[Rfam]
RNA sequence: CUAGCAAAAAGGCUUGUCGCUCCCGUUUUCGCGGGGGAGGAAAGUCCGGGCAACACAGAGCAUCCUGCUUCCUAACGGGAAGGGUCCCUGUACCGAAGCUCCGGUUCAUCCCGGCUUCAGCAGGGAUACAGCAAGUGCCACAGAAAACAGGUAGCCUUGCCUGACGUCGCUUGCGGCGCCGGCGGGUCAUAGUGAAAACGCGGGGUAAGAGCCCACGGCUUCCUGCAGCAAUGCAGGAUGCAGGUAAACCUCAGGAGUUGAAAGGCCAAAUAAACCGGGGCUAGAGGGCUGCUCGCCCGAUCCCUGUGGGUAGGCUGAUGGACCGUUCCAGCGAUGGAACGGCUAGAUAAAUGACAAGCAGUUCCCCGCCUCUGGCAUGGGAAUGAACAGAACCCGGCUUACUCUUUUGCUUUUUUU
Numbered sequence: 001c002u003a004g005c006a007a008a009a010a011g012g013c014u015u016g017u018c019g020c021u022c023c024c025g026u027u028u029u030c031g032c033g034g035g036g037g038a039g040g041a042a043a044g045u046c047c048g049g050g051c052a053a054c055a056c057a058g059a060g061c062a063u064c065c066u067g068c069u070u071c072c073u074a075a076c077g078g079g080a081a082g083g084g085u086c087c088c089u090g091u092a093c094c095g096a097a098g099c100u101c102c103g104g105u106u107c108a109u110c111c112c113g114g115c116u117u118c119a120g121c122a123g124g125g126a127u128a129c130a131g132c133a134a135g136u137g138c139c140a141c142a143g144a145a146a147a148c149a150g151g152u153a154g155c156c157u158u159g160c161c162u163g164a165c166g167u168c169g170c171u172u173g174c175g176g177c178g179c180c181g182g183c184g185g186g187u188c189a190u191a192g193u194g195a196a197a198a199c200g201c202g203g204g205g206u207a208a209g210a211g212c213c214c215a216c217g218g219c220u221u222c223c224u225g226c227a228g229c230a231a232u233g234c235a236g237g238a239u240g241c242a243g244g245u246a247a248a249c250c251u252c253a254g255g256a257g258u259u260g261a262a263a264g265g266c267c268a269a270a271u272a273a274a275c276c277g278g279g280g281c282u283a284g285a286g287g288g289c290u291g292c293u294c295g296c297c298c299g300a301u302c303c304c305u306g307u308g309g310g311u312a313g314g315c316u317g318a319u320g321g322a323c324c325g326u327u328c329c330a331g332c333g334a335u336g337g338a339a340c341g342g343c344u345a346g347a348u349a350a351a352u353g354a355c356a357a358g359c360a361g362u363u364c365c366c367c368g369c370c371u372c373u374g375g376c377a378u379g380g381g382a383a384u385g386a387a388c389a390g391a392a393c394c395c396g397g398c399u400u401a402c403u404c405u406u407u408u409g410c411u412u413u414u415u416u417u
Base pairs, nucleotide, nucleotide: 003411004410005409006408007407008406009405011402012359013358014357015356016355017354018353020037021036022035023034024033025032026031042400043399044398046397047396048395049394050393051260052259053258054257058294059293060292061291063256064255065254066253067252068082069081070080071079072078083129084127085126086125087124088123089122090121091120130251131250135249136248137245138244139243152191153190154187155186156185158184159183160182161181163179199217200216202214203213204212221238222237223236224235225234226233227232264316265315266314267313274307275306277304278303279302286298287297288296289295323342324341325340326339327338328337329336330335
Dot-bracket structure: ..(((((((.((((((((.(((((((....)))))))....[[[.[[[[[((((...[[[[.((((((((((.....)))))(((((((((............................)))))))).)((...(((((............(((((.((((.(...............).)))))))..)).......((.(((.......))).))...(((((((....)))))))....)))..)))))))))))))...((((......((.(((......((((.]]]]))))...))).)).....))))......((((((((....))))))))..........))))))).................................]]]]]]]].)..)))))))......
Bacterial RNase P class A: a 417-nucleotide RNA from Anseongella ginsenosidimutans. The organism belongs to Anseongella, within Bacteria. By type it is a ribozyme. Rfam's curators write: Ribonuclease P (RNase P) is a ubiquitous endoribonuclease, found in archaea, bacteria and eukarya as well as chloroplasts and mitochondria. Its best characterised activity is the generation of mature 5'-ends of tRNAs by cleaving the 5'-leader elements of precursor-tRNAs. A search with the family's covariance model found it, with a score of 237 bits.